[Rfam]
RNA sequence: UGGCCAAGGAUGAGAACUCAAUCUGAUGGAUGUACUUCCACUCUGAUGGGUUAAAGGAUUUACCUGAGGCCA
Numbered sequence: 001u002g003g004c005c006a007a008g009g010a011u012g013a014g015a016a017c018u019c020a021a022u023c024u025g026a027u028g029g030a031u032g033u034a035c036u037u038c039c040a041c042u043c044u045g046a047u048g049g050g051u052u053a054a055a056g057g058a059u060u061u062a063c064c065u066g067a068g069g070c071c072a
Stems, first nucleotide, its partner, number of pairs: 002071004

A member of the RNA family "Small nucleolar RNA SNORD93" from Sorex araneus, 72 nucleotides long. The family's consensus secondary structure was predicted with RNAalifold.